The record is a 75-nucleotide sequence from Saccoglossus kowalevskii, which matches "mir-278_2 microRNA precursor family" in Rfam.

[Rfam]
RNA sequence: UGAUCCGAAGGAAUGAAAGUCUCGUCUAAUCGUGAUAUUAAUCGAGAUCGGUGGGACUUUCGUUCGUUUGGAAGA
Numbered sequence: 001u002g003a004u005c006c007g008a009a010g011g012a013a014u015g016a017a018a019g020u021c022u023c024g025u026c027u028a029a030u031c032g033u034g035a036u037a038u039u040a041a042u043c044g045a046g047a048u049c050g051g052u053g054g055g056a057c058u059u060u061c062g063u064u065c066g067u068u069u070g071g072a073a074g075a
Stems, first nucleotide, its partner, number of pairs: 004072003011065016030047002

About this RNA
Pairs were carried over by alignment from the consensus structure, which was predicted with RNAalifold. It is one of the family's seed sequences. The organism belongs to Saccoglossus, within Eukaryota.